[Rfam]
RNA sequence: GACAUGUCUGCGGGAGAGACUGAAUCGCCCAAGCUGGUGAUCAGCGCCGAAGGAGCAACUGCCCCGGAAACUCUCAGGCAAAAGGACCGCUGACAUGAA
Dot-bracket structure: .....(((.((((......((((.................)))).(((((..(((...(......)....))))).))).......)))).))).....

The record is a 99-nucleotide RNA sequence from Marinobacter sp. B9-2, which matches "Glycine riboswitch aptamer" in Rfam.
From the family's description: This family represents the bacterial glycine riboswitch.
NCBI's taxonomy places the organism under Bacteria, Pseudomonadota, Gammaproteobacteria, Marinobacteraceae, Marinobacter.
Its family is annotated with glycine biosynthetic process in the Gene Ontology.
The base pairs follow the family's consensus structure.